[Rfam]
RNA sequence: GAAGGUUUGGCCCUUCGGAGUCGCCUUUCGGGAGGAGGCUUCAAACCACCACGCAUAUGCUGCGUUGGCUGAAGACCGUCGUGGUGAGCGAUGUGGAAAAGGCGCCGUGAGAGGU
Number, nucleotide and partner (000 for none) at each position: 001g016002a015003a014004g013005g012006u000007u000008u000009g000010g000011c000012c005013c004014u003015u002016c001017g042018g041019a040020g039021u038022c037023g000024c035025c034026u033027u032028u000029c000030g000031g000032g027033a026034g025035g024036a000037g022038g021039c020040u019041u018042c017043a000044a000045a000046c000047c000048a000049c096050c095051a000052c000053g000054c000055a094056u093057a092058u091059g085060c084061u000062g082063c081064g080065u000066u078067g077068g076069c000070u000071g000072a000073a000074g000075a000076c068077c067078g066079u000080c064081g063082u062083g000084g060085u059086g000087a000088g000089c000090g000091a058092u057093g056094u055095g050096g049097a000098a000099a000100a000101g000102g000103c000104g115105c114106c113107g000108u000109g000110a000111g000112a000113g106114g105115u104

Rfam assigns this 115-nucleotide RNA from Micromonospora sp. Llam0 to the family "Group II catalytic intron D1-D4-2". The organism belongs to Micromonospora, within Bacteria. From the family's description: Group II introns are found in rRNA, tRNA and mRNA of organelles in fungi, plants and protists, and also in mRNA in bacteria. It scores 72 bits against the family's covariance model.